[Rfam]
A member of the RNA family "c-di-GMP-I riboswitch aptamer" from Erysipelatoclostridium sp. AM42-17, 83 nucleotides long. Rfam's curators write: GEMM was predicted in a large-scale screen for bacterial structured RNA regulatory elements. Pairs were carried over by alignment from the consensus structure, which is taken from published work.

RNA sequence: UAAUUUAUUUGGCAAAACUAUUGAAAAAUAGUGACGCAAAGCUACAGGGCUUAACCGUAAGGAAUGCUGGCUGAGUUGCAUAG
Numbered sequence: 001u002a003a004u005u006u007a008u009u010u011g012g013c014a015a016a017a018c019u020a021u022u023g024a025a026a027a028a029u030a031g032u033g034a035c036g037c038a039a040a041g042c043u044a045c046a047g048g049g050c051u052u053a054a055c056c057g058u059a060a061g062g063a064a065u066g067c068u069g070g071c072u073g074a075g076u077u078g079c080a081u082a083g
Base pairs, nucleotide, nucleotide: 012037013036017032018031019030020029021028022027040077041076042075043074045073046072047071048068049067050066055062056061